[Rfam]
The record is a 97-nucleotide RNA from Aeromicrobium sp. A1-2, which matches "Bacterial small signal recognition particle RNA" in Rfam. About the family: The signal recognition particle (SRP) is a universally conserved ribonucleoprotein involved in the co-translational targeting of proteins to membranes. The base pairs follow the family's consensus structure, which is taken from published work. The organism belongs to Aeromicrobium, within Bacteria. It is annotated as a non-coding RNA gene.
RNA sequence: CGAAGCCCCUCGCGCGGCGACACAUCACCCAACUCCCCCAGGGCCGGAAGGCAGCAAGGGUCAGUGACCUCUGUCGGGUGCGCGAGGGGUCCUUCAU
Numbered sequence: 001c002g003a004a005g006c007c008c009c010u011c012g013c014g015c016g017g018c019g020a021c022a023c024a025u026c027a028c029c030c031a032a033c034u035c036c037c038c039c040a041g042g043g044c045c046g047g048a049a050g051g052c053a054g055c056a057a058g059g060g061u062c063a064g065u066g067a068c069c070u071c072u073g074u075c076g077g078g079u080g081c082g083c084g085a086g087g088g089g090u091c092c093u094u095c096a097u
Base pairs, nucleotide, nucleotide: 005090006089007088008087009086010085011084012083013082014081015078018076019075020074021073022072025067026066027065028064035060036059037058043052044051045050